[Rfam]
RNA sequence: UCAGGAAGCAUCCAAAGGGAUCGCAUUGAUCCCACUUUGUAGCAUUUUUUUUUUUUUUUUUUGACCUUUUCAUGUUUUCUUUUACCUUCUUCUGCUAUGGAAUUUGGAUCAUGCCAUCUCUUUGGAUUCCUCCUG
Numbered sequence: 001u002c003a004g005g006a007a008g009c010a011u012c013c014a015a016a017g018g019g020a021u022c023g024c025a026u027u028g029a030u031c032c033c034a035c036u037u038u039g040u041a042g043c044a045u046u047u048u049u050u051u052u053u054u055u056u057u058u059u060u061u062u063g064a065c066c067u068u069u070u071c072a073u074g075u076u077u078u079c080u081u082u083u084a085c086c087u088u089c090u091u092c093u094g095c096u097a098u099g100g101a102a103u104u105u106g107g108a109u110c111a112u113g114c115c116a117u118c119u120c121u122u123u124g125g126a127u128u129c130c131u132c133c134u135g
Stems, first nucleotide, its partner, number of pairs: 002135005008129001010127012023114004028110005
RNA: mir-393 microRNA precursor family
Organism: Cucumis sativus